Small nucleolar RNA SNORD58: a 70-nucleotide sequence from Oceanodroma tethys. A reference for the family is Galardi et al. (2002), "Purified box C/D snoRNPs are able to reproduce site-specific 2'-O-methylation of target RNA in vitro", Mol Cell Biol. The family is grouped with related families in Rfam's "SNORD58 clan".
[Rfam]
RNA sequence: UGGCAGUGGUGACUAUCUUAGGAUACCUUUGGAACAACCAUGAAAUGAUAAUACCUUCUUUCUUAGCCAU
Numbered sequence: 001u002g003g004c005a006g007u008g009g010u011g012a013c014u015a016u017c018u019u020a021g022g023a024u025a026c027c028u029u030u031g032g033a034a035c036a037a038c039c040a041u042g043a044a045a046u047g048a049u050a051a052u053a054c055c056u057u058c059u060u061u062c063u064u065a066g067c068c069a070u
Stems, first nucleotide, its partner, number of pairs: 001069004
Rfam describes the family as follows. snoRNA U58 is found in introns 1, 3 and 6 of the ribosomal protein RPL17 gene in humans. The family has 33 seed sequences and 2,484 matches in Rfam 15.1. Lineage of the source: Eukaryota > Sarcopterygii > Dipnotetrapodomorpha > Aves > Oceanodroma. The family's consensus secondary structure was predicted with PFOLD. By type it is a C/D-box small nucleolar RNA.